Shown here is a 93-nucleotide sequence from Aquarana catesbeiana, a member of the family "mir-1388 microRNA precursor family". On this family, see Soares et al., BMC Genomics 2009: "Parallel DNA pyrosequencing unveils new zebrafish microRNAs". Its family is annotated with miRNA-mediated post-transcriptional gene silencing and RISC complex in the Gene Ontology. NCBI's taxonomy places the organism under Eukaryota, Metazoa, Bilateria, Euteleostomi, Aquarana. The match comes from Rfam's covariance-model search (86 bits).

RNA sequence: AGCUGAGAGAUGUCCCUAGGACUGUCUGACCUGAGAAUGGUGGAAUAAAAUGGUCAAUCUCAGGUUCGUCAGCCCAUGGAACAUUCCUUCAUG
Numbered sequence: 001a002g003c004u005g006a007g008a009g010a011u012g013u014c015c016c017u018a019g020g021a022c023u024g025u026c027u028g029a030c031c032u033g034a035g036a037a038u039g040g041u042g043g044a045a046u047a048a049a050a051u052g053g054u055c056a057a058u059c060u061c062a063g064g065u066u067c068g069u070c071a072g073c074c075c076a077u078g079g080a081a082c083a084u085u086c087c088u089u090c091a092u093g
Stems, first nucleotide, its partner, number of pairs: 005090003009085005015079002019075002022072003026068001028066009038056002